Rfam assigns this 71-nucleotide RNA from Polioptila caerulea to the family "Small nucleolar RNA SNORD19". The family's RNA type in Rfam is C/D-box small nucleolar RNA. For this family Rfam cites "RNomics: an experimental approach that identifies 201 candidates for novel, small, non-messenger RNAs in mouse" (Huttenhofer et al., EMBO J, 2001).
[Rfam]
RNA sequence: GAGCUAUGAAGAUUUUUAAGGAAUCAGAUUCCAUUGAAGACAUAAGAUCCAACUCUGAGCUCACUAUAAAG
Numbered sequence: 001g002a003g004c005u006a007u008g009a010a011g012a013u014u015u016u017u018a019a020g021g022a023a024u025c026a027g028a029u030u031c032c033a034u035u036g037a038a039g040a041c042a043u044a045a046g047a048u049c050c051a052a053c054u055c056u057g058a059g060c061u062c063a064c065u066a067u068a069a070a071g
Base pairs, nucleotide, nucleotide: 001062002061003060004059